[Rfam]
RNA sequence: GGCAACCACCUUUACAACGGACCGUCCGGCACGUUCCUGCCGGUGAAGGGGGCCCUU
Number, nucleotide and partner (000 for none) at each position: 001g000002g000003c000004a000005a000006c000007c000008a000009c049010c048011u047012u046013u045014a044015c000016a000017a000018c000019g000020g000021a000022c000023c000024g000025u000026c043027c042028g041029g040030c039031a038032c000033g000034u000035u000036c000037c000038u031039g030040c029041c028042g027043g026044u014045g013046a012047a011048g010049g009050g000051g000052g000053c000054c000055c000056u000057u000